[Rfam]
RNA sequence: GUGUAAGAUACAACAAUUAUGCUCAUGUAAAUUAAAAAGUCGUAAUCCGAUUAUAUCAUCGUGUCUGUUUAUAUGCAAUAUGUAAGAACCUGAUACAACUAUCAGGUUCUUUUUUGU
Numbered sequence: 001g002u003g004u005a006a007g008a009u010a011c012a013a014c015a016a017u018u019a020u021g022c023u024c025a026u027g028u029a030a031a032u033u034a035a036a037a038a039g040u041c042g043u044a045a046u047c048c049g050a051u052u053a054u055a056u057c058a059u060c061g062u063g064u065c066u067g068u069u070u071a072u073a074u075g076c077a078a079u080a081u082g083u084a085a086g087a088a089c090c091u092g093a094u095a096c097a098a099c100u101a102u103c104a105g106g107u108u109c110u111u112u113u114u115u116g117u
Base pairs, nucleotide, nucleotide: 033071034070035069036068038064041061042060082113084111085110086109087108088107089106090105091104092103093102

Bacillus sRNA ncr1015: a 117-nucleotide RNA sequence from Paenibacillus sp. N3.4. The family's RNA type in Rfam is small RNA. The base pairs follow the family's consensus structure, which is taken from published work.